Background: The record is a 75-nucleotide sequence from Flavobacterium psychrophilum, which matches "Flavo-1 RNA" in Rfam. Rfam classes the family as a small RNA.
RNA sequence: UGUUUGCGUGAGGGAUUGAGGCGGUAUCCUUUUUUGAGGCACGAAAAAAAGAUAUAGCCGAAAGCCCGACUUGAG
Numbered sequence: 001u002g003u004u005u006g007c008g009u010g011a012g013g014g015a016u017u018g019a020g021g022c023g024g025u026a027u028c029c030u031u032u033u034u035u036g037a038g039g040c041a042c043g044a045a046a047a048a049a050a051g052a053u054a055u056a057g058c059c060g061a062a063a064g065c066c067c068g069a070c071u072u073g074a075g
Base pairs, nucleotide, nucleotide: 012067013066014065016063017062021058022057026053027052028051031048032047033046034045035044
Dot-bracket structure: ...........(((.((...((...(((..(((((........)))))..)))...))...)).)))........